[Rfam]
RNA sequence: CUCUACUGAUGAUCUGUUGUUUAGUGCCAUAGUGUCUGGGCCACUGAUCUCUACUGAUGGAGAUGAGGAACUGAGGAG
Numbered sequence: 001c002u003c004u005a006c007u008g009a010u011g012a013u014c015u016g017u018u019g020u021u022u023a024g025u026g027c028c029a030u031a032g033u034g035u036c037u038g039g040g041c042c043a044c045u046g047a048u049c050u051c052u053a054c055u056g057a058u059g060g061a062g063a064u065g066a067g068g069a070a071c072u073g074a075g076g077a078g
Stems, first nucleotide, its partner, number of pairs: 001078004
Shown here is a 78-nucleotide RNA from Atractosteus spatula, a member of the family "Small nucleolar RNA SNORD66". Lineage of the source: Eukaryota > Metazoa > Deuterostomia > Semionotiformes > Atractosteus. The family has 20 seed sequences and 1,346 matches in Rfam 15.1. snoRNA HBII-142 is part of the C/D family of snoRNAs. It is the human orthologue of the mouse MBII-142 snoRNA and is predicted to guide 2'O-ribose methylation of small 18S rRNA at residue C1272. Rfam links the family to the GO terms nucleolus and RNA processing.